[Rfam]
RNA: tRNA
RNA sequence: GGGGUCAUCGUCCAACAGGAAGAUGCCGCCAUCGCAAGGCGGAGAUCCGGGUGCGAUUCCCGGUGACUCCA
Numbered sequence: 001g002g003g004g005u006c007a008u009c010g011u012c013c014a015a016c017a018g019g020a021a022g023a024u025g026c027c028g029c030c031a032u033c034g035c036a037a038g039g040c041g042g043a044g045a046u047c048c049g050g051g052u053g054c055g056a057u058u059c060c061c062g063g064u065g066a067c068u069c070c071a
Base pairs, nucleotide, nucleotide: 001070002069003068004067005066006065007064010024011023012022026042027041028040029039030038047063048062049061050060051059